RNA sequence: CGGCGGGACACCCUUCCCCAACGAAGGGCAUCUAUCUGUAAGGUUAGGCUAC
Numbered sequence: 001c002g003g004c005g006g007g008a009c010a011c012c013c014u015u016c017c018c019c020a021a022c023g024a025a026g027g028g029c030a031u032c033u034a035u036c037u038g039u040a041a042g043g044u045u046a047g048g049c050u051a052c
Stems, first nucleotide, its partner, number of pairs: 011028006032047003036043002

serC leader: a 52-nucleotide RNA from Salipiger pallidus. About the family: This family is a putative regulatory RNA structure that is found upstream of the serC-serA operon in some alpha-proteobacteria. Its family is annotated with regulation of gene expression in the Gene Ontology. By type it is a cis-regulatory leader. On this family, see Corbino et al., Genome Biol 2005: "Evidence for a second class of S-adenosylmethionine riboswitches and other regulatory RNA motifs in alpha-proteobacteria".